[Rfam]
RNA sequence: CAUCGCCAGAGGCAUGAGGGUCACGGCCUUCAUGACAGCGCGAUUUUGAUUCUGGUCGUGCCGCUGGCCCACAAGGCCACCGACAUGCGCACCAGGGGAACCACCCGGCUUCGCCCGGGCAGGCCCCGCGCAGUUUCGCCGCUGAUCGGCCUCGGCCUUCGGCGGUGCGACGUAGAUAGCACGACCUGGCG
Numbered sequence: 001c002a003u004c005g006c007c008a009g010a011g012g013c014a015u016g017a018g019g020g021u022c023a024c025g026g027c028c029u030u031c032a033u034g035a036c037a038g039c040g041c042g043a044u045u046u047u048g049a050u051u052c053u054g055g056u057c058g059u060g061c062c063g064c065u066g067g068c069c070c071a072c073a074a075g076g077c078c079a080c081c082g083a084c085a086u087g088c089g090c091a092c093c094a095g096g097g098g099a100a101c102c103a104c105c106c107g108g109c110u111u112c113g114c115c116c117g118g119g120c121a122g123g124c125c126c127c128g129c130g131c132a133g134u135u136u137c138g139c140c141g142c143u144g145a146u147c148g149g150c151c152u153c154g155g156c157c158u159u160c161g162g163c164g165g166u167g168c169g170a171c172g173u174a175g176a177u178a179g180c181a182c183g184a185c186c187u188g189g190c191g
Base pairs, nucleotide, nucleotide: 004042005041006040013034014033015032016031017030018029019028020027021026056184057183058182059181060180061179062082063081065079066078067077068076069075086132087131088130089129090128095127096126097125098124101123102122104119105118106117107116108115134170135169137167138166139165140164141163142162143161144160145159148157149156150155
Rfam assigns this 191-nucleotide RNA sequence to the family "RT-15 RNA". The family's consensus secondary structure is taken from published work. Rfam classes the family as a small RNA.